Rfam assigns this 86-nucleotide RNA sequence from Solanum commersonii to the family "MIR8024 microRNA precursor family". It scores 73 bits against the family's covariance model. Pairs were carried over by alignment from the consensus structure, which was predicted with RNAalifold. Rfam links the family to the GO terms RISC complex and miRNA-mediated post-transcriptional gene silencing.
RNA sequence: UUGAAAGAUUUGAAGACUUCAACUUACGUACCCUAAGAAUUUGAGGACUUCAACUUGCGUAGUUGAAGGAUUUGAAGACUUCAACU
Numbered sequence: 001u002u003g004a005a006a007g008a009u010u011u012g013a014a015g016a017c018u019u020c021a022a023c024u025u026a027c028g029u030a031c032c033c034u035a036a037g038a039a040u041u042u043g044a045g046g047a048c049u050u051c052a053a054c055u056u057g058c059g060u061a062g063u064u065g066a067a068g069g070a071u072u073u074g075a076a077g078a079c080u081u082c083a084a085c086u
Base pairs, nucleotide, nucleotide: 001084002083003082004081005080009076010075011074012073013072014071017068018067019066020065021064025059027057028056035050036049037048